[Rfam]
Nucleotides: 213
Base pairs, nucleotide, nucleotide: 002116003115004114005113006112007111008110010104011103012102013101018098019097020096021095022094023093024092025091027071028070029069030068031067032066033065034064035063072087073086074085075084076083077082130208131207132206133205134204137201139200140199141198142197149194150193151192152191153190154189155188156187159184161182163175164174165173
Number, partner (000 for none) and nucleotide at each position: 001000c002116g003115c004114a005113c006112a007111u008110u009000c010104c011103u012102u013101a014000g015000a016000u017000c018098c019097c020096u021095c022094a023093u024092c025091a026000u027071a028070g029069a030068a031067a032066g033065g034064g035063u036000a037000g038000g039000c040000c041000a042000g043000a044000c045000c046000a047000u048000c049000g050000g051000u052000c053000u054000g055000u056000u057000g058000c059000c060000g061000u062000a063035g064034c065033u066032c067031u068030u069029u070028c071027u072087c073086c074085c075084a076083g077082u078000c079000u080000u081000c082077g083076c084075u085074g086073g087072g088000u089000a090000u091025u092024g093023g094022u095021g096020a097019g098018g099000c100000a101013u102012g103011a104010g105000u106000c107000a108000u109000a110008a111007a112006u113005g114004u115003g116002c117000a118000a119000a120000a121000u122000c123000a124000g125000u126000a127000u128000a129000c130208c131207u132206c133205u134204u135000u136000u137201g138000c139200u140199g141198c142197c143000c144000u145000a146000u147000g148000u149194g150193g151192u152191g153190g154189u155188c156187g157000u158000u159184g160000c161182u162000c163175g164174c165173u166000a167000a168000u169000u170000u171000c172000u173165g174164g175163c176000a177000g178000c179000c180000u181000u182161a183000a184159c185000u186000u187156c188155g189154a190153c191152c192151a193150c194149c195000g196000c197142g198141g199140c200139g201137u202000u203000c204134a205133a206132g207131g208130g209000a210000c211000a212000u213000u
Small nucleolar RNA SNORA53: a 213-nucleotide sequence from Spizellomyces punctatus. From the family's description: The snoRNA ACA53 belongs to the H/ACA family of pseudouridylation guide snoRNAs. Rfam links the family to the GO terms nucleolus and RNA processing.